A member of the RNA family "mir-6 microRNA precursor family" from Drosophila ananassae, 68 nucleotides long. Rfam's curators write: This family consists of the microRNA (miRNA) precursor mir-6 which appears to be Drosophila specific. Animal miRNAs are transcribed as ~70nt precursors and subsequently processed by the Dicer enzyme to give a ~22nt product. In this case the mature sequence comes from the 3' arm of the precursor. The extents of the hairpin precursors are not generally known and are estimated based on hairpin prediction. Gene Ontology terms of the family: miRNA-mediated post-transcriptional gene silencing and RISC complex. Pairs were carried over by alignment from the consensus structure, which was predicted with PFOLD. Rfam's curators put it in the seed alignment. Taxonomically the source falls in ananassae species complex (Eukaryota, Mandibulata, Diptera, Brachycera).
RNA sequence: AAGUAGAGAGAAUAGUGGCUGUGCUGUAAGUUUCAAAAUCUAUAUCACAGUGGCUGUUCUUUUUGCAC
Numbered sequence: 001a002a003g004u005a006g007a008g009a010g011a012a013u014a015g016u017g018g019c020u021g022u023g024c025u026g027u028a029a030g031u032u033u034c035a036a037a038a039u040c041u042a043u044a045u046c047a048c049a050g051u052g053g054c055u056g057u058u059c060u061u062u063u064u065g066c067a068c
Base pairs, nucleotide, nucleotide: 004065005064007062008061009060010059011058012057013056016053018051019050020049021048022047023046025044026043027042028041